pemK RNA: an 80-nucleotide RNA sequence from Paenibacillus sp. D9.
[Rfam]
RNA sequence: AUAAUGAUACUUCCGUCCAGCCACAGUUAUCGCAAUGGGGGCGGCCUGCAGCGAUCCUGGAGGAGGCGUAGAGCCUAUGA
Numbered sequence: 001a002u003a004a005u006g007a008u009a010c011u012u013c014c015g016u017c018c019a020g021c022c023a024c025a026g027u028u029a030u031c032g033c034a035a036u037g038g039g040g041g042c043g044g045c046c047u048g049c050a051g052c053g054a055u056c057c058u059g060g061a062g063g064a065g066g067c068g069u070a071g072a073g074c075c076u077a078u079g080a
Stems, first nucleotide, its partner, number of pairs: 012077001013044006045063003049059003064076003